Description: A member of the RNA family "Tryptophan operon leader" from Serratia rubidaea, 103 nucleotides long. About the family: At least 6 amino acid operons are known to be regulated by attenuation. Pairs were carried over by alignment from the consensus structure, which is taken from published work. NCBI's taxonomy places the organism under Bacteria, Pseudomonadati, Gammaproteobacteria, Yersiniaceae, Serratia. Rfam classes the family as a cis-regulatory leader.

RNA sequence: CUUCGUUGGUGGCGUACCUCCCUUUCGCGGGCGGUGUAAUCACGCAUACCUGUCAUCCGACAAUGCAGAUUCUCCAGGCCCGCCGUUAUGCGGGCUUUUUUUU
Numbered sequence: 001c002u003u004c005g006u007u008g009g010u011g012g013c014g015u016a017c018c019u020c021c022c023u024u025u026c027g028c029g030g031g032c033g034g035u036g037u038a039a040u041c042a043c044g045c046a047u048a049c050c051u052g053u054c055a056u057c058c059g060a061c062a063a064u065g066c067a068g069a070u071u072c073u074c075c076a077g078g079c080c081c082g083c084c085g086u087u088a089u090g091c092g093g094g095c096u097u098u099u100u101u102u103u
Stems, first nucleotide, its partner, number of pairs: 009043004014037005020031003077096007